[Rfam]
RNA sequence: GAGUUCACGGUUGUGGCGAGCUUAAGGGGCUAACCCCCGAAGGCUCAGGGAAACCGACAAGUCCGCAACCGGUUCUCCGGUGAGGGACGGGGUCCCAAAGGGCCUGGAGUCACAGCCGUGAAACCCGAAACCGGGUGAUCUAGGCGGGGGCAGAGCGAAGCCGAGGGAAACCUCGGUGGAGGCUCGAAAGGGUUCUGACGUGCAAUUCGUUCCCCUGACCCCCGUCUAGGGGCAAAAGACCAAUCUAACCCGGUGAUAGCUGGUU
Dot-bracket structure: ....(((((((((((((..((((..((((.....))))..))))...((....)).....((((...((((......))))...))))..((((......))))....)))))))))))))..((.(...((((((...((((((((((((.((((...(((((((....)))))))....))))....(((..(.((........)))..)))..).))))))))))).((.......))......))))))......).))..
Shown here is a 265-nucleotide part of an RNA from Fervidicoccus fontis, a member of the family "Archaeal large subunit ribosomal RNA". Its family is annotated with structural constituent of ribosome and ribosome in the Gene Ontology. Taxonomically the source falls in Fervidicoccus fontis (Archaea, Thermoproteota, Fervidicoccales, Fervidicoccus). The family has 91 seed sequences and 2,955 matches in Rfam 15.1. Its Rfam clan is "LSU clan".